[Rfam]
RNA sequence: CUUCCUUUUGUUGGCAUACAUGUGGUGGUUCAGUACACGUGUGUAAUGGGCGGAGGUAAAGAAAUGCCAGUGCUAUGUCUUCGGUGCCAGCAUGUUUAUUGUCUUCUGGUUCAAUCCUCAAUCACUGGAACAAGC
Dot-bracket structure: (((((.........((..((.((.((........)))).))))........)))))...........(((((..............((((.(.(........).))))).............)))))........
The record is a 135-nucleotide RNA from Sinocyclocheilus anshuiensis, which matches "Small nucleolar RNA SNORA57" in Rfam. U99 belongs to the H/ACA class of snoRNAs which are thought to guide the sites of modification of uridines to pseudouridines, the target for this family is unknown. It is annotated as an H/ACA-box small nucleolar RNA. On this family, see Vitali et al., Nucleic Acids Res 2003: "Identification of 13 novel human modification guide RNAs".